[Rfam]
Rfam assigns this 86-nucleotide RNA sequence from Cyprinus carpio to the family "Small nucleolar RNA MBII-202". The match comes from Rfam's covariance-model search (60 bits). Rfam classes the family as a C/D-box small nucleolar RNA. NCBI's taxonomy places the organism under Eukaryota, Gnathostomata, Clupeocephala, Cyprinus, Cyprinus carpio.

RNA sequence: UGAUGACAAUUCUCCGGAAUCUCUGUACUUCAUUGAUGACCUCCUUUGAACCCUAUAUUCUGAUGACUGUUGAUGCUGACGUUAUU
Numbered sequence: 001u002g003a004u005g006a007c008a009a010u011u012c013u014c015c016g017g018a019a020u021c022u023c024u025g026u027a028c029u030u031c032a033u034u035g036a037u038g039a040c041c042u043c044c045u046u047u048g049a050a051c052c053c054u055a056u057a058u059u060c061u062g063a064u065g066a067c068u069g070u071u072g073a074u075g076c077u078g079a080c081g082u083u084a085u086u
Base pairs, nucleotide, nucleotide: 002086003085004084005083006082
Dot-bracket structure: .(((((...........................................................................)))))